[Rfam]
RNA: Bacterial small signal recognition particle RNA
RNA sequence: AAUCCUGCACAGGGCGAUAGCUUGGUAUGUGAACCAGGCCAGGCCGGAAGGAGCAACCUUAAGCAUAUUUAAGCUAUGCUCCCUGUAUACAGGGUAGA
Numbered sequence: 001a002a003u004c005c006u007g008c009a010c011a012g013g014g015c016g017a018u019a020g021c022u023u024g025g026u027a028u029g030u031g032a033a034c035c036a037g038g039c040c041a042g043g044c045c046g047g048a049a050g051g052a053g054c055a056a057c058c059u060u061a062a063g064c065a066u067a068u069u070u071a072a073g074c075u076a077u078g079c080u081c082c083c084u085g086u087a088u089a090c091a092g093g094g095u096a097g098a
Base pairs, nucleotide, nucleotide: 004093005092006091007090009086010085011084012083013082014081015078017077018076019075020074021073022072025068026067027066028065029064030063036059037058038057044051045050
Dot-bracket structure: ...((((.(((((((.((((((..((((((.....(((.....((....)).....)))...))))))...)))))))..))))))...)))).....